[Rfam]
RNA sequence: CUCGGGGGAGAGGGGUAGGUCCCUCAUCCUGGAUUGCAAGAGGGUGCAGGCCAGGUGAGGGACCCCACUGGUGCACG
Numbered sequence: 001c002u003c004g005g006g007g008g009a010g011a012g013g014g015g016u017a018g019g020u021c022c023c024u025c026a027u028c029c030u031g032g033a034u035u036g037c038a039a040g041a042g043g044g045u046g047c048a049g050g051c052c053a054g055g056u057g058a059g060g061g062a063c064c065c066c067a068c069u070g071g072u073g074c075a076c077g
Stems, first nucleotide, its partner, number of pairs: 004074001006072001009069002012066002018064009028055002031052002034049005
A member of the RNA family "mir-9193 microRNA precursor family" from Cnephaeus nilssonii, 77 nucleotides long. Rfam 15.1 lists 6,008 matches to the family in 8 species. The family's consensus secondary structure was predicted with RNAalifold.